[Rfam]
RNA sequence: GAAAAAUGAAGAUAAUUCUGACUGCUUCCUACUAUGACUGUGAAGACCUCAGAUCCAACUCUGAUUUCACUCUAGUU
Dot-bracket structure: ((((............................................................)))).........
Numbered sequence: 001g002a003a004a005a006a007u008g009a010a011g012a013u014a015a016u017u018c019u020g021a022c023u024g025c026u027u028c029c030u031a032c033u034a035u036g037a038c039u040g041u042g043a044a045g046a047c048c049u050c051a052g053a054u055c056c057a058a059c060u061c062u063g064a065u066u067u068c069a070c071u072c073u074a075g076u077u
Stems, first nucleotide, its partner, number of pairs: 001068004